[Rfam]
RNA sequence: GAUAAGACGGGUGAGAAUCCCGUCCGCCGUAAACCUAAGGUUUCCUGGGGAAGGUAAAUCCGCCCAGGGUCAGCCGGUGCCUAACCCGAGGCCGAGAGGCGUAGGGGACGGGGAGCAGGUUAAUAUUCCUGCGCUCCCGUGCGGUUUAACCCGGUGGGGAAAGGGUGCAGGCUUAUCAGAUUGCCUCAGGGCGAUUAAGACCCCGAUAUCCCGGACCCCGCCGGCAAGAAGUGCCGCGCGGAAACCGUACCAAAACCGACACAGGUGGGUGGGAUGAGUAUUCCAAGGCGCU
Numbered sequence: 001g002a003u004a005a006g007a008c009g010g011g012u013g014a015g016a017a018u019c020c021c022g023u024c025c026g027c028c029g030u031a032a033a034c035c036u037a038a039g040g041u042u043u044c045c046u047g048g049g050g051a052a053g054g055u056a057a058a059u060c061c062g063c064c065c066a067g068g069g070u071c072a073g074c075c076g077g078u079g080c081c082u083a084a085c086c087c088g089a090g091g092c093c094g095a096g097a098g099g100c101g102u103a104g105g106g107g108a109c110g111g112g113g114a115g116c117a118g119g120u121u122a123a124u125a126u127u128c129c130u131g132c133g134c135u136c137c138c139g140u141g142c143g144g145u146u147u148a149a150c151c152c153g154g155u156g157g158g159g160a161a162a163g164g165g166u167g168c169a170g171g172c173u174u175a176u177c178a179g180a181u182u183g184c185c186u187c188a189g190g191g192c193g194a195u196u197a198a199g200a201c202c203c204c205g206a207u208a209u210c211c212c213g214g215a216c217c218c219c220g221c222c223g224g225c226a227a228g229a230a231g232u233g234c235c236g237c238g239c240g241g242a243a244a245c246c247g248u249a250c251c252a253a254a255a256c257c258g259a260c261a262c263a264g265g266u267g268g269g270u271g272g273g274a275u276g277a278g279u280a281u282u283c284c285a286a287g288g289c290g291c292u
Stems, first nucleotide, its partner, number of pairs: 006024006025290004033270004039251002044068006053061002075247004080111002085106003089102001091100003115132005135243001137241009151224004157218003163211004169186004256265002272284003